[Rfam]
RNA sequence: UAGGAAAAAAGGCAAACCCGAUCGAAAGACGGGGACGCAAAGCCACGGGUCUACAGCCGCUCUCGGCCAAGACAGCCGGGUUGCCCAU
Numbered sequence: 001u002a003g004g005a006a007a008a009a010a011g012g013c014a015a016a017c018c019c020g021a022u023c024g025a026a027a028g029a030c031g032g033g034g035a036c037g038c039a040a041a042g043c044c045a046c047g048g049g050u051c052u053a054c055a056g057c058c059g060c061u062c063u064c065g066g067c068c069a070a071g072a073c074a075g076c077c078g079g080g081u082u083g084c085c086c087a088u
Stems, first nucleotide, its partner, number of pairs: 012038002017033004022029002041082004046078003049073003056067004
Dot-bracket structure: ...........((...((((.((....))))))...))..((((.((((((....((((....))))...)))..)))))))......
This 88-nucleotide sequence from Paenibacillus flagellatus belongs to the Rfam family "c-di-GMP-I riboswitch aptamer". Its family is annotated with cyclic-di-GMP binding in the Gene Ontology. NCBI's taxonomy places the organism under Bacteria, Bacillota, Caryophanales, Paenibacillaceae, Paenibacillus.